[Rfam]
RNA sequence: AAAACUUAAAACAACGAAAGCCCUUCCUCUCUUCCAUCCUUGCGGCUCCGAAGACCGCGCCAGUGAGAAUCAAGUAUCUAUAUACAAU
Numbered sequence: 001a002a003a004a005c006u007u008a009a010a011a012c013a014a015c016g017a018a019a020g021c022c023c024u025u026c027c028u029c030u031c032u033u034c035c036a037u038c039c040u041u042g043c044g045g046c047u048c049c050g051a052a053g054a055c056c057g058c059g060c061c062a063g064u065g066a067g068a069a070u071c072a073a074g075u076a077u078c079u080a081u082a083u084a085c086a087a088u
Stems, first nucleotide, its partner, number of pairs: 035067001039063002041059005047053001

The family of this 88-nucleotide RNA from a Paenibacillaceae bacterium is "BsrC". For this family Rfam cites "Novel small RNA-encoding genes in the intergenic regions of Bacillus subtilis" (Saito et al., Gene, 2008). Lineage of the source: Bacteria > Bacillota > Bacilli > Caryophanales > Paenibacillaceae.